The record is a 97-nucleotide sequence from Niallia taxi, which matches "BsrF" in Rfam. The match comes from Rfam's covariance-model search (68 bits). By type it is a small RNA. Pairs were carried over by alignment from the consensus structure, which was predicted with WAR. NCBI's taxonomy places the organism under Bacteria, Bacillota, Bacilli, Bacillaceae, Niallia. A reference for the family is Saito et al. (2008), "Novel small RNA-encoding genes in the intergenic regions of Bacillus subtilis", Gene.
RNA sequence: GCGAUGAGCUCUAUUGAAUAAGUCAAUGAACAUUUAAUGCGCUAUGUGGAGCGCAGUUUAUUGCCUCAAUAACGUAAGGACACCAUUUAUGGUGUCC
Numbered sequence: 001g002c003g004a005u006g007a008g009c010u011c012u013a014u015u016g017a018a019u020a021a022g023u024c025a026a027u028g029a030a031c032a033u034u035u036a037a038u039g040c041g042c043u044a045u046g047u048g049g050a051g052c053g054c055a056g057u058u059u060a061u062u063g064c065c066u067c068a069a070u071a072a073c074g075u076a077a078g079g080a081c082a083c084c085a086u087u088u089a090u091g092g093u094g095u096c097c
Base pairs, nucleotide, nucleotide: 014069015068016067017066024063025062026061027060028059029058030057031056038055039054041052042051043050078097079096080095081094082093083092084091085090